[Rfam]
RNA sequence: AGAGACGGACAAACGAUCGCGGGCGUACGCGUUACGCCUGAGGAAAGUCCGGGCACCACAGAGCAUGUAGCCGGGUAACGCCCGGUGCGGGCGACCGUGAGGAUAGUGCCACAGAAAUGAUGACCGCCGAUGGCCACGCCGCAAGGCAAGGCACAGGUAAGGGUGCAACGGUGGGGUAAGAGCCCACCGGCAGGGUCGAGAGGCCCUGGCCAGGUAAACCCCGACAGGUGCAAGGUGCCGGAGAUACUGUAGGCAACUGUUUACAAGUCUCCAAUGGAAGCCGCAUUGAAUUGCAAGGGCUGCUCGUCCGCUUCCCGUAUCCCGCUAGAGCUGGUUGGAAACAGCCAGUCGAGACAGAUGAUCGUUCACAACAGAACCCGGCUUAUGGCCGUCUCUUUUC
Numbered sequence: 001a002g003a004g005a006c007g008g009a010c011a012a013a014c015g016a017u018c019g020c021g022g023g024c025g026u027a028c029g030c031g032u033u034a035c036g037c038c039u040g041a042g043g044a045a046a047g048u049c050c051g052g053g054c055a056c057c058a059c060a061g062a063g064c065a066u067g068u069a070g071c072c073g074g075g076u077a078a079c080g081c082c083c084g085g086u087g088c089g090g091g092c093g094a095c096c097g098u099g100a101g102g103a104u105a106g107u108g109c110c111a112c113a114g115a116a117a118u119g120a121u122g123a124c125c126g127c128c129g130a131u132g133g134c135c136a137c138g139c140c141g142c143a144a145g146g147c148a149a150g151g152c153a154c155a156g157g158u159a160a161g162g163g164u165g166c167a168a169c170g171g172u173g174g175g176g177u178a179a180g181a182g183c184c185c186a187c188c189g190g191c192a193g194g195g196u197c198g199a200g201a202g203g204c205c206c207u208g209g210c211c212a213g214g215u216a217a218a219c220c221c222c223g224a225c226a227g228g229u230g231c232a233a234g235g236u237g238c239c240g241g242a243g244a245u246a247c248u249g250u251a252g253g254c255a256a257c258u259g260u261u262u263a264c265a266a267g268u269c270u271c272c273a274a275u276g277g278a279a280g281c282c283g284c285a286u287u288g289a290a291u292u293g294c295a296a297g298g299g300c301u302g303c304u305c306g307u308c309c310g311c312u313u314c315c316c317g318u319a320u321c322c323c324g325c326u327a328g329a330g331c332u333g334g335u336u337g338g339a340a341a342c343a344g345c346c347a348g349u350c351g352a353g354a355c356a357g358a359u360g361a362u363c364g365u366u367c368a369c370a371a372c373a374g375a376a377c378c379c380g381g382c383u384u385a386u387g388g389c390c391g392u393c394u395c396u397u398u399u400c
Base pairs, nucleotide, nucleotide: 001396002395003394004393005392006391007390008389010387011386012366013365014364015363016362017361018360020040021039022038023037024036025035026034027033045384046383047382049381050380051379052378053377054230055229056228057227061305062304063303064302066226067225068224070222071085072084073083074082075081086100087098088097089096090095101221102220106219107218108215109214110213124162125161126158127157128156131153132152134150170188171187172186173185174184175183190210191208192207193206194205195204196203197202234323235322237320244313297309298308299307300306330349331348332347333346334345335344336343337342
The family of this 400-nucleotide RNA sequence is "Bacterial RNase P class A". The family's RNA type in Rfam is ribozyme.